[Rfam]
Alphaproteobacterial sRNA ar7: a 142-nucleotide sequence from Chelativorans sp. BNC1. The base pairs follow the family's consensus structure.
RNA sequence: UAUCGGCAAUAUUUUUCGCCGAAGUCCGGAAAGGCUCGUCCCCCGCCGAACCGGACAUAAAAGCGGCAGCCUUAUCCCCCUCUCCGGGCUGCCGCACAUAAUAUAAGGCCGCCGUGGUUCCCCUCCACCACGGCGGCACUUU
Numbered sequence: 001u002a003u004c005g006g007c008a009a010u011a012u013u014u015u016u017c018g019c020c021g022a023a024g025u026c027c028g029g030a031a032a033g034g035c036u037c038g039u040c041c042c043c044c045g046c047c048g049a050a051c052c053g054g055a056c057a058u059a060a061a062a063g064c065g066g067c068a069g070c071c072u073u074a075u076c077c078c079c080c081u082c083u084c085c086g087g088g089c090u091g092c093c094g095c096a097c098a099u100a101a102u103a104u105a106a107g108g109c110c111g112c113c114g115u116g117g118u119u120c121c122c123c124u125c126c127a128c129c130a131c132g133g134c135g136g137c138a139c140u141u142u
Stems, first nucleotide, its partner, number of pairs: 025055005033047003064094008109136010

Rfam classes the family as a small RNA.